[Rfam]
RNA sequence: AUAACAAAAAUAAAAAGCAGCAAACCCAUAAAAAUAAGACGUACCGACUCUGACAUAACAAAAACAACACGGCAGAGACGCAGCUAACAGAUUUUUUUGGAGAAGGUGUGCUUUCAGGGGACUUAACCGUUACCCGCAACCGGGCAGAGAACAAUAAAACUACCUCAAGGUAGCUACCGAACUGGUUGGAUCACCUGAUAAGGCAGAUCAGCGCUCAAAAAAAUACGUUUGCUCUUGAUCCCGGAUGGGGAUCAGCCAAAACAGCGGUAAAGGGCCACGGUUGACAAAAACAACAACAGACCGCCCCUCAAUAAUAAAAAAGAGCCUACAACAACGCAUUCAAGGGGAGCUUCGGCUCCCCUUCGUGUUUCUGCCUCUCUGUCAUUCGACAACUC
Numbered sequence: 001a002u003a004a005c006a007a008a009a010a011u012a013a014a015a016a017g018c019a020g021c022a023a024a025c026c027c028a029u030a031a032a033a034a035u036a037a038g039a040c041g042u043a044c045c046g047a048c049u050c051u052g053a054c055a056u057a058a059c060a061a062a063a064a065c066a067a068c069a070c071g072g073c074a075g076a077g078a079c080g081c082a083g084c085u086a087a088c089a090g091a092u093u094u095u096u097u098u099g100g101a102g103a104a105g106g107u108g109u110g111c112u113u114u115c116a117g118g119g120g121a122c123u124u125a126a127c128c129g130u131u132a133c134c135c136g137c138a139a140c141c142g143g144g145c146a147g148a149g150a151a152c153a154a155u156a157a158a159a160c161u162a163c164c165u166c167a168a169g170g171u172a173g174c175u176a177c178c179g180a181a182c183u184g185g186u187u188g189g190a191u192c193a194c195c196u197g198a199u200a201a202g203g204c205a206g207a208u209c210a211g212c213g214c215u216c217a218a219a220a221a222a223a224u225a226c227g228u229u230u231g232c233u234c235u236u237g238a239u240c241c242c243g244g245a246u247g248g249g250g251a252u253c254a255g256c257c258a259a260a261a262c263a264g265c266g267g268u269a270a271a272g273g274g275c276c277a278c279g280g281u282u283g284a285c286a287a288a289a290a291c292a293a294c295a296a297c298a299g300a301c302c303g304c305c306c307c308u309c310a311a312u313a314a315u316a317a318a319a320a321a322g323a324g325c326c327u328a329c330a331a332c333a334a335c336g337c338a339u340u341c342a343a344g345g346g347g348a349g350c351u352u353c354g355g356c357u358c359c360c361c362u363u364c365g366u367g368u369u370u371c372u373g374c375c376u377c378u379c380u381g382u383c384a385u386u387c388g389a390c391a392a393c394u395c
Stems, first nucleotide, its partner, number of pairs: 045080002048077004095220005109213003137188007160173005238252005272377003276373002278303004324368002327365001342363009

Description
The record is a 395-nucleotide RNA sequence from Pseudomonas agarici, which matches "Pseudomonas sRNA CrcZ" in Rfam. The family's RNA type in Rfam is small RNA. On this family, see Livny et al., Nucleic Acids Res 2006: "Identification of 17 Pseudomonas aeruginosa sRNAs and prediction of sRNA-encoding genes in 10 diverse pathogens using the bioinformatic tool sRNAPredict2". It scores 342 bits against the family's covariance model. Pairs were carried over by alignment from the consensus structure, which was predicted with WAR. Its family is annotated with carbon catabolite repression of transcription in the Gene Ontology.